[Rfam]
RNA sequence: GUCGAGCUAAGUAACUAGAGCUUGUGACCCAAGUGGGGACAAUAAGAUGGUGGAACACUGGUUCGGAUCCACGGUCGGUUCUGGUUUGGCAUGUUUCUGGACUGCCCGGUCCAAGCUGGCGAGUUAUUCGUCUGGUUCGAGCGAAGGCUUGGGUCAGACGGUUACUAAAGAGGAGGGUAAUGCGUGAGGCUGGUUUCACAGAGCAGCGACUACUUCUCGCUCUCAGCAGUGGACGGAUUACAGUUCGGGGCCACCCAGAUCCACUAUGGCUUGCUGGUUCGUACUCAGCUGGACCACCAUCUUU
Numbered sequence: 001g002u003c004g005a006g007c008u009a010a011g012u013a014a015c016u017a018g019a020g021c022u023u024g025u026g027a028c029c030c031a032a033g034u035g036g037g038g039a040c041a042a043u044a045a046g047a048u049g050g051u052g053g054a055a056c057a058c059u060g061g062u063u064c065g066g067a068u069c070c071a072c073g074g075u076c077g078g079u080u081c082u083g084g085u086u087u088g089g090c091a092u093g094u095u096u097c098u099g100g101a102c103u104g105c106c107c108g109g110u111c112c113a114a115g116c117u118g119g120c121g122a123g124u125u126a127u128u129c130g131u132c133u134g135g136u137u138c139g140a141g142c143g144a145a146g147g148c149u150u151g152g153g154u155c156a157g158a159c160g161g162u163u164a165c166u167a168a169a170g171a172g173g174a175g176g177g178u179a180a181u182g183c184g185u186g187a188g189g190c191u192g193g194u195u196u197c198a199c200a201g202a203g204c205a206g207c208g209a210c211u212a213c214u215u216c217u218c219g220c221u222c223u224c225a226g227c228a229g230u231g232g233a234c235g236g237a238u239u240a241c242a243g244u245u246c247g248g249g250g251c252c253a254c255c256c257a258g259a260u261c262c263a264c265u266a267u268g269g270c271u272u273g274c275u276g277g278u279u280c281g282u283a284c285u286c287a288g289c290u291g292g293a294c295c296a297c298c299a300u301c302u303u304u
Stems, first nucleotide, its partner, number of pairs: 001040003004023005011016001028037003044303010056291002058288003061284002064281003069277003073271004077262002080259005087253003092249001097248008106236002109234005115227004121222004125164002128161015165170001172217005183208003190201003
A member of the RNA family "Plant signal recognition particle RNA" from Microthlaspi erraticum, 304 nucleotides long. The family's consensus secondary structure is taken from published work.